[Rfam]
RNA sequence: CCGAGCUCAGUAGCGAGAGCUUGUAACCUAAGCGGGGGCAUUAAGGUGGUGUGGAUGUUUCCUGACGGAUUCUGGGCCUGGGCCUGUAUGUGCCACUGGCCGGCCUGCCCGUUCCAAGUUGGUUGUGGCUGGUGGGGCUCGGGCGAAGGCCUGGGCCUCUUUAGACCUGAAGCGGCAGGCAUGGCGUGAGGCUGGCUUCACAGAGCAGCGAUCACUGCCCGCUUCCAACGGUGGGAGGAUAACAGGCCGCUGCAUUGCAAGCCCAACUCGGUCCAGAGCCUCAUUAAACAGACCACCAUCUUU
Numbered sequence: 001c002c003g004a005g006c007u008c009a010g011u012a013g014c015g016a017g018a019g020c021u022u023g024u025a026a027c028c029u030a031a032g033c034g035g036g037g038g039c040a041u042u043a044a045g046g047u048g049g050u051g052u053g054g055a056u057g058u059u060u061c062c063u064g065a066c067g068g069a070u071u072c073u074g075g076g077c078c079u080g081g082g083c084c085u086g087u088a089u090g091u092g093c094c095a096c097u098g099g100c101c102g103g104c105c106u107g108c109c110c111g112u113u114c115c116a117a118g119u120u121g122g123u124u125g126u127g128g129c130u131g132g133u134g135g136g137g138c139u140c141g142g143g144c145g146a147a148g149g150c151c152u153g154g155g156c157c158u159c160u161u162u163a164g165a166c167c168u169g170a171a172g173c174g175g176c177a178g179g180c181a182u183g184g185c186g187u188g189a190g191g192c193u194g195g196c197u198u199c200a201c202a203g204a205g206c207a208g209c210g211a212u213c214a215c216u217g218c219c220c221g222c223u224u225c226c227a228a229c230g231g232u233g234g235g236a237g238g239a240u241a242a243c244a245g246g247c248c249g250c251u252g253c254a255u256u257g258c259a260a261g262c263c264c265a266a267c268u269c270g271g272u273c274c275a276g277a278g279c280c281u282c283a284u285u286a287a288a289c290a291g292a293c294c295a296c297c298a299u300c301u302u303u
Stems, first nucleotide, its partner, number of pairs: 001038002003022006027036003043302009056290002059287002063283003067280002070277002075273002078271001080264004085259002088256001090255003094252002101249007109238002112236005118229005125222002129164004134160002136157009166172001174219005183212001185210003192203003
RNA: Plant signal recognition particle RNA